[Rfam]
RNA sequence: UGUUCAUGCCCUCCUUGGGCGUUUCCUCCCUAGACUUCGACCGUGUCGUGAGAACGAUGCGGUCUUUUUUUCAGGGCGG
Numbered sequence: 001u002g003u004u005c006a007u008g009c010c011c012u013c014c015u016u017g018g019g020c021g022u023u024u025c026c027u028c029c030c031u032a033g034a035c036u037u038c039g040a041c042c043g044u045g046u047c048g049u050g051a052g053a054a055c056g057a058u059g060c061g062g063u064c065u066u067u068u069u070u071u072c073a074g075g076g077c078g079g
Stems, first nucleotide, its partner, number of pairs: 008020004039064009
This 79-nucleotide sequence from Mesorhizobium sanjuanii belongs to the Rfam family "Makes More Granules Regulator RNA (mmgR)". The source organism's lineage runs through Bacteria, Pseudomonadati, Pseudomonadota, Phyllobacteriaceae and Mesorhizobium. Its family is annotated with DNA-templated transcription, termination, response to nitrogen compound and protein binding in the Gene Ontology.